[Rfam]
RNA sequence: CUUAUAUCUGAAACAGUGCUUUCAACAUAUG
Numbered sequence: 001c002u003u004a005u006a007u008c009u010g011a012a013a014c015a016g017u018g019c020u021u022u023c024a025a026c027a028u029a030u031g
Base pairs, nucleotide, nucleotide: 001031003029004028005027007025009024010023011022012021013020014018